[Rfam]
RNA sequence: UCGUUGGGCUGAAUUAGUGAUCGGCUCAACAUUAAUCAAUUGGAGAUAACUAUGUCACUAACUAAAACAGAAACUGCACAAAUCAUUUCAGAUUACGCUGUAAAAGAA
Numbered sequence: 001u002c003g004u005u006g007g008g009c010u011g012a013a014u015u016a017g018u019g020a021u022c023g024g025c026u027c028a029a030c031a032u033u034a035a036u037c038a039a040u041u042g043g044a045g046a047u048a049a050c051u052a053u054g055u056c057a058c059u060a061a062c063u064a065a066a067a068c069a070g071a072a073a074c075u076g077c078a079c080a081a082a083u084c085a086u087u088u089c090a091g092a093u094u095a096c097g098c099u100g101u102a103a104a105a106g107a108a
Stems, first nucleotide, its partner, number of pairs: 007026006040061004045056001
Shown here is a 108-nucleotide RNA sequence from Alteromonas sp. 5E99-2, a member of the family "Ribosomal S15 leader".
The organism belongs to Alteromonas, within Bacteria.
The family is grouped with related families in Rfam's "Ribosomal Protein S15 Leader clan".
The base pairs follow the family's consensus structure, which is taken from published work.
A search with the family's covariance model found it, with a score of 65 bits.